[Rfam]
RNA sequence: UCCAGCGGUAGUCAGCUACCCAUUGCUGUUCAGUGCCUGUGAUAGUGUUAUGCUGCUGGGAGAGAAAUGUGCUGCUGAGUCGCCCCUGGCACCGCCGGUGCUGUUCUAGUGCUAGGUGGUGCCGGGGUUUGGCAGCACUCUGCAUGCUUGAGAGUGGACUAACUCCUUCUUGGUGGAGUUAAUCCUAGAUUGGAUGCAGACAAC
Numbered sequence: 001u002c003c004a005g006c007g008g009u010a011g012u013c014a015g016c017u018a019c020c021c022a023u024u025g026c027u028g029u030u031c032a033g034u035g036c037c038u039g040u041g042a043u044a045g046u047g048u049u050a051u052g053c054u055g056c057u058g059g060g061a062g063a064g065a066a067a068u069g070u071g072c073u074g075c076u077g078a079g080u081c082g083c084c085c086c087u088g089g090c091a092c093c094g095c096c097g098g099u100g101c102u103g104u105u106c107u108a109g110u111g112c113u114a115g116g117u118g119g120u121g122c123c124g125g126g127g128u129u130u131g132g133c134a135g136c137a138c139u140c141u142g143c144a145u146g147c148u149u150g151a152g153a154g155u156g157g158a159c160u161a162a163c164u165c166c167u168u169c170u171u172g173g174u175g176g177a178g179u180u181a182a183u184c185c186u187a188g189a190u191u192g193g194a195u196g197c198a199g200a201c202a203a204c
Stems, first nucleotide, its partner, number of pairs: 001060009011051002015046004020041001021039002025036002069138009082128005088123006095116002097112001099111004140199006147192001156185003160181007
This 204-nucleotide RNA sequence from Anhinga rufa belongs to the Rfam family "Small nucleolar RNA SNORA74". The family is grouped with related families in Rfam's "SNORA74 clan". Rfam describes the family as follows. U19 belongs to the H/ACA class of snoRNAs. snoRNAs bind a number of proteins (including dyskerin, Gar1p and Nop10p in the case of the H/ACA class) to form snoRNP complexes. This class are thought to guide the sites of modification of uridines to pseudouridines by forming direct base pairing interactions with substrate RNAs. Targets may include ribosomal and spliceosomal RNAs but the exact functions of many snoRNAs, including U19, are not confirmed. Co-precipitation of U19 snoRNA with RNase MRP RNA suggests that U19 may be involved in pre-rRNA processing. For this family Rfam cites "The family of box ACA small nucleolar RNAs is defined by an evolutionarily conserved secondary structure and ubiquitous sequence elements essential for RNA accumulation" (Ganot et al., Genes Dev, 1997). The family's consensus secondary structure was predicted with PFOLD.